[Rfam]
The record is a 99-nucleotide sequence from Oryctolagus cuniculus, which matches "Vault RNA" in Rfam.

RNA sequence: GGGCUGGCUUUAGCUCAGUGGUUCCUUCGUCUACUGAAUCAGACCUAGUCACCAAUUCGUUGGUGGUUCGAGGCCCACGGGUGCUUUUCCAGUCCUUUU
Numbered sequence: 001g002g003g004c005u006g007g008c009u010u011u012a013g014c015u016c017a018g019u020g021g022u023u024c025c026u027u028c029g030u031c032u033a034c035u036g037a038a039u040c041a042g043a044c045c046u047a048g049u050c051a052c053c054a055a056u057u058c059g060u061u062g063g064u065g066g067u068u069c070g071a072g073g074c075c076c077a078c079g080g081g082u083g084c085u086u087u088u089c090c091a092g093u094c095c096u097u098u099u
Stems, first nucleotide, its partner, number of pairs: 002094006013082004018078004026072004
The family has 73 seed sequences and 2,873 matches in Rfam 15.1. This family of RNAs are found as part of the enigmatic vault ribonucleoprotein complex. The complex consists of a major vault protein (MVP), two minor vault proteins (VPARP and TEP1), and several small untranslated RNA molecules. It has been suggested that the vault complex is involved in drug resistance. A search with the family's covariance model found it, with a score of 74 bits.